[Rfam]
RNA sequence: UGCAUGGGGACUGCGAACUCCCCACGAGGCGUCAGCUGAAGAUCGCGUUCCAUAUCAACCCGGCAACGGAGGAACGCUCAUG
Dot-bracket structure: ....((((((........))))))....................((((((.....................)))))).....
This 82-nucleotide RNA sequence from Devosia sp. I507 belongs to the Rfam family "chrB-a RNA". The family's consensus secondary structure is taken from published work.